A member of the RNA family "mir-275 microRNA precursor family" from Culex quinquefasciatus, 91 nucleotides long.
A reference for the family is Marco et al. (2010), "Functional shifts in insect microRNA evolution", Genome Biol Evol.
The base pairs follow the family's consensus structure, which was predicted with RNAalifold.
The organism belongs to Culex pipiens complex, within Eukaryota.
RNA sequence: AUCCUUCCGAUAGCGCGCGCUAAGCAGGAACCGGGACUUGGUCAUUCGCUAGCAGUCAGGUACCUGAAGUAGCGCGCGUGAUCGGAAGUGC
Numbered sequence: 001a002u003c004c005u006u007c008c009g010a011u012a013g014c015g016c017g018c019g020c021u022a023a024g025c026a027g028g029a030a031c032c033g034g035g036a037c038u039u040g041g042u043c044a045u046u047c048g049c050u051a052g053c054a055g056u057c058a059g060g061u062a063c064c065u066g067a068a069g070u071a072g073c074g075c076g077c078g079u080g081a082u083c084g085g086a087a088g089u090g091c
Stems, first nucleotide, its partner, number of pairs: 009083003014078001016076007030061003035057004